The family of this 180-nucleotide RNA sequence from Sporolactobacillus putidus is "Lysine riboswitch aptamer".
The match comes from Rfam's covariance-model search (124 bits).
The organism belongs to Sporolactobacillus, within Bacteria.
Rfam describes the family as follows. Riboswitches are metabolite binding domains within certain messenger RNAs that serve as precision sensors for their corresponding targets.
The family has 47 seed sequences and 3,224 matches in Rfam 15.1.
RNA sequence: AGAGGAGGUAGAGGUUGCGGUGUUUAAGAUUAGCGCAUUGGAGGCAAAAGGAGGCCGUCGAACAUGCGUGAAAGGAAACAUCGCCGAAGUGCGCCCGGUUCCUUGCCGGGCGUGCUGGGACCGCUUCCGAACAGGGACGGGACUGUCACAUGGAAAUCCAUGUGAUGUGCUAUCGAUGGA
Dot-bracket structure: ......(((((.....(((((((((.......((((((.........................))))))......)))))))))...((((((((((((.....))))))))))))((..(((.(((......))).)))..)).(((((((......)))))))....)))))......